[Rfam]
The record is a 95-nucleotide RNA, which matches "DUF1874 RNA" in Rfam. By type it is a cis-regulatory element.

RNA sequence: GUAAGUCCCGCCGUGUGGGCUGGCCAUCCAAGGUAAAUCUCCCCAUAGGGGAGUGCCAGCCCAUUCCCGCAAGGGAAGAUGGCGGGGUAGGAGGA
Numbered sequence: 001g002u003a004a005g006u007c008c009c010g011c012c013g014u015g016u017g018g019g020c021u022g023g024c025c026a027u028c029c030a031a032g033g034u035a036a037a038u039c040u041c042c043c044c045a046u047a048g049g050g051g052a053g054u055g056c057c058a059g060c061c062c063a064u065u066c067c068c069g070c071a072a073g074g075g076a077a078g079a080u081g082g083c084g085g086g087g088u089a090g091g092a093g094g095a
Base pairs, nucleotide, nucleotide: 005088006087007086008085009084010083011082012081013080016063017062018061019060020059021058022057023056024055037054039053040052041051042050043049064077065076066075067074068073
The base pairs follow the family's consensus structure, which is taken from published work.